[Rfam]
RNA: Archaeal large subunit ribosomal RNA, nucleotides 1725 to 2082
RNA sequence: CGGUUUAAUUGUGUUUAGGGAACUCGGCAAAAUAGCUCCGUAACUUUGGAAUAAGGAGUGCCUGCCCGGAGAUCGGGCAGGUCGCAGUGACUCGGGGACUCCGACUGUCUAAUAACAACAUAGCAGACUGCAACUCGGAAACGACUAGUAUAGUCUGUGAUUCCUGCCCAGUGCAGGUAUCUGAACACCGGGUACAACCGGACGAAGGACCUGUAAACGGCGGGGGUAACUAUGACCCUCUUAAGGUAGCGUAGUACCUUGUCGCUUAAUUGGCGACUUGCAUGAAUGGAUUAACGAGAGUCCUACUGUCCCAAACACAAGUCCGUUGAACAUUUUAUCCUAGUGCAGAGGCUAGGGA
Numbered sequence: 001c002g003g004u005u006u007a008a009u010u011g012u013g014u015u016u017a018g019g020g021a022a023c024u025c026g027g028c029a030a031a032a033u034a035g036c037u038c039c040g041u042a043a044c045u046u047u048g049g050a051a052u053a054a055g056g057a058g059u060g061c062c063u064g065c066c067c068g069g070a071g072a073u074c075g076g077g078c079a080g081g082u083c084g085c086a087g088u089g090a091c092u093c094g095g096g097g098a099c100u101c102c103g104a105c106u107g108u109c110u111a112a113u114a115a116c117a118a119c120a121u122a123g124c125a126g127a128c129u130g131c132a133a134c135u136c137g138g139a140a141a142c143g144a145c146u147a148g149u150a151u152a153g154u155c156u157g158u159g160a161u162u163c164c165u166g167c168c169c170a171g172u173g174c175a176g177g178u179a180u181c182u183g184a185a186c187a188c189c190g191g192g193u194a195c196a197a198c199c200g201g202a203c204g205a206a207g208g209a210c211c212u213g214u215a216a217a218c219g220g221c222g223g224g225g226g227u228a229a230c231u232a233u234g235a236c237c238c239u240c241u242u243a244a245g246g247u248a249g250c251g252u253a254g255u256a257c258c259u260u261g262u263c264g265c266u267u268a269a270u271u272g273g274c275g276a277c278u279u280g281c282a283u284g285a286a287u288g289g290a291u292u293a294a295c296g297a298g299a300g301u302c303c304u305a306c307u308g309u310c311c312c313a314a315a316c317a318c319a320a321g322u323c324c325g326u327u328g329a330a331c332a333u334u335u336u337a338u339c340c341u342a343g344u345g346c347a348g349a350g351g352c353u354a355g356g357g358a
Stems, first nucleotide, its partner, number of pairs: 001325003009320008018311003035059005044049001060082009083087001095304007102296002106120003123158008131148001135144003162290003166221003171218002173214005180209003188201004222240006241245001261277006339356005